[Rfam]
RNA sequence: GGAGGCGUCCGGACGCCUGGUGGGUCCCGCGGCCUUCAACGCCGACGAGAGGGCGCUCGGCGCCCUCUGGCGGGUUCGAUUCCCGUCCGCCUCC
Numbered sequence: 001g002g003a004g005g006c007g008u009c010c011g012g013a014c015g016c017c018u019g020g021u022g023g024g025u026c027c028c029g030c031g032g033c034c035u036u037c038a039a040c041g042c043c044g045a046c047g048a049g050a051g052g053g054c055g056c057u058c059g060g061c062g063c064c065c066u067c068u069g070g071c072g073g074g075u076u077c078g079a080u081u082c083c084c085g086u087c088c089g090c091c092u093c094c
Stems, first nucleotide, its partner, number of pairs: 001094007011027004016023002030044004048068005071085004
The family of this 94-nucleotide RNA from Egicoccus halophilus is "Selenocysteine transfer RNA". A search with the family's covariance model found it, with a score of 56 bits. Its family is annotated with triplet codon-amino acid adaptor activity in the Gene Ontology.